[Rfam]
RNA sequence: GAUCGAACUUUGUACCGCGCACAUGACUUAGAUGGGCUCUAGAAAAUCAUGUAGGGG
Numbered sequence: 001g002a003u004c005g006a007a008c009u010u011u012g013u014a015c016c017g018c019g020c021a022c023a024u025g026a027c028u029u030a031g032a033u034g035g036g037c038u039c040u041a042g043a044a045a046a047u048c049a050u051g052u053a054g055g056g057g
Base pairs, nucleotide, nucleotide: 019037020036022034023033024032
RNA: Plastid-ndhJ 3UTR RNA